[Rfam]
A member of the RNA family "c-di-AMP riboswitch aptamer (ydaO/yuaA leader)" from Actinotalea ferrariae, 159 nucleotides long. This family represents a conserved RNA structure found upstream of the ydaO and yuaA genes in Bacillus subtilis and related genes in other bacteria. A reference for the family is Barrick et al. (2004), "New RNA motifs suggest an expanded scope for riboswitches in bacterial genetic control", Proc Natl Acad Sci U S A. The match comes from Rfam's covariance-model search (52 bits). NCBI's taxonomy places the organism under Bacteria, Actinomycetota, Micrococcales, Cellulomonadaceae, Actinotalea ferrariae.
RNA sequence: GAGCCCCUCACGACAUCACGGCAGGAGCGGGGGAACCACCACGGGCACCACACGGUGUCCUCGGGGUGAAGCCGGGUGACCGUCCUCGGACGGGAGCGCGGCCGGGUGAUCUCCCACCCGAACCCGACAGCUCACCUCGUAGGCGUCCGGAGAGGUUCG
Dot-bracket structure: ....((.................)).((((((....(.........................)(((.....(((........................)))..((((........))))...))).........))))))...................